[Rfam]
RNA sequence: UGGCACCCAACGUGCGGUCUGAGCACGGGGGAUUCAGUGAAGAAUGCUGUUUGGAGAGCCGGCGAAAAAGAAACUAAUAGGAGGACGAGAUUAAAUGGGAGCCUGCUGUUUCUUCUGAACCUCGGUAAGUGAACAGCGAUUAUGGGACAAGAAAUAAGUCAGCAUGAAAUGUUCGUAGAAGGGCUGAAAAAGGCUUUAAAGGCACAAGGGGUAAAGGUUUCUGUAAAACAAUUGUUAAAGUAUUUUGAUUAUAUUAAGGAUGUUUGUCCGC
Numbered sequence: 001u002g003g004c005a006c007c008c009a010a011c012g013u014g015c016g017g018u019c020u021g022a023g024c025a026c027g028g029g030g031g032a033u034u035c036a037g038u039g040a041a042g043a044a045u046g047c048u049g050u051u052u053g054g055a056g057a058g059c060c061g062g063c064g065a066a067a068a069a070g071a072a073a074c075u076a077a078u079a080g081g082a083g084g085a086c087g088a089g090a091u092u093a094a095a096u097g098g099g100a101g102c103c104u105g106c107u108g109u110u111u112c113u114u115c116u117g118a119a120c121c122u123c124g125g126u127a128a129g130u131g132a133a134c135a136g137c138g139a140u141u142a143u144g145g146g147a148c149a150a151g152a153a154a155u156a157a158g159u160c161a162g163c164a165u166g167a168a169a170u171g172u173u174c175g176u177a178g179a180a181g182g183g184c185u186g187a188a189a190a191a192g193g194c195u196u197u198a199a200a201g202g203c204a205c206a207a208g209g210g211g212u213a214a215a216g217g218u219u220u221c222u223g224u225a226a227a228a229c230a231a232u233u234g235u236u237a238a239a240g241u242a243u244u245u246u247g248a249u250u251a252u253a254u255u256a257a258g259g260a261u262g263u264u265u266g267u268c269c270g271c
Stems, first nucleotide, its partner, number of pairs: 006031003012026003035049004081123004089116001090114001094110005130149002134146001137144002155198003158194003205247005211241002215233002218230001220228001258269004
RNA: Mason-Pfizer monkey virus packaging signal
Organism: Pipistrellus kuhlii